[Rfam]
RNA sequence: CACUUCUGCUUUAAAAGAAGUCUGCUAUAAUUGUACGAUUCAGAUUUUUCUGUUUCAUGCAAUAAUGCUAGCAGAGUUGUUUGUGGAAGGAGAUGGAUUGUGCGCUGUUCUGAAAAUGAGAUGGGGUCGAACCUCUUUCUUAAUGUUCGUUGACCUCGGUCUCAAGGCUCAGUGCUACAAGA
Numbered sequence: 001c002a003c004u005u006c007u008g009c010u011u012u013a014a015a016a017g018a019a020g021u022c023u024g025c026u027a028u029a030a031u032u033g034u035a036c037g038a039u040u041c042a043g044a045u046u047u048u049u050c051u052g053u054u055u056c057a058u059g060c061a062a063u064a065a066u067g068c069u070a071g072c073a074g075a076g077u078u079g080u081u082u083g084u085g086g087a088a089g090g091a092g093a094u095g096g097a098u099u100g101u102g103c104g105c106u107g108u109u110c111u112g113a114a115a116a117u118g119a120g121a122u123g124g125g126g127u128c129g130a131a132c133c134u135c136u137u138u139c140u141u142a143a144u145g146u147u148c149g150u151u152g153a154c155c156u157c158g159g160u161c162u163c164a165a166g167g168c169u170c171a172g173u174g175c176u177a178c179a180a181g182a
Stems, first nucleotide, its partner, number of pairs: 021075001023073005030066004037056001041052004102175006126151001128149004

A member of the RNA family "Small nucleolar RNA SNORA81" from Sphaeramia orbicularis, 182 nucleotides long. The family's RNA type in Rfam is H/ACA-box small nucleolar RNA. Taxonomically the source falls in Sphaeramia (Eukaryota, Metazoa, Deuterostomia, Neoteleostei). Rfam 15.1 lists 1,161 matches to the family in 643 species.